[Rfam]
RNA: MIR396 microRNA precursor family
Organism: Theobroma cacao
RNA sequence: CUUUGUAUUCUUCCACAGCUUUCUUGAACUGCUACUUCUUAGAUCGUUCCUUCUUGUUGGCGGUGAUGUUGCAUGUGGGCUGCAUACGGGUAUGUUGUUGCAGUUCAAUAAAGCUGUGGGAAGAUACGGACA
Dot-bracket structure: ..(((((.....(((.((((((.((((.((((...................................................................)))).)))).)))))).))).....)))))...